RNA sequence: CAGCGGCACCCGACACAACGGAUCGUCCGGCACGUACCUGCCGGUGGAGGGAACCACUC
Numbered sequence: 001c002a003g004c005g006g007c008a009c010c011c012g013a014c015a016c017a018a019c020g021g022a023u024c025g026u027c028c029g030g031c032a033c034g035u036a037c038c039u040g041c042c043g044g045u046g047g048a049g050g051g052a053a054c055c056a057c058u059c
Base pairs, nucleotide, nucleotide: 009051010050011049014046015045027044028043029042030041031040032039
msiK RNA: a 59-nucleotide RNA from Xylanimonas oleitrophica. By type it is a cis-regulatory element.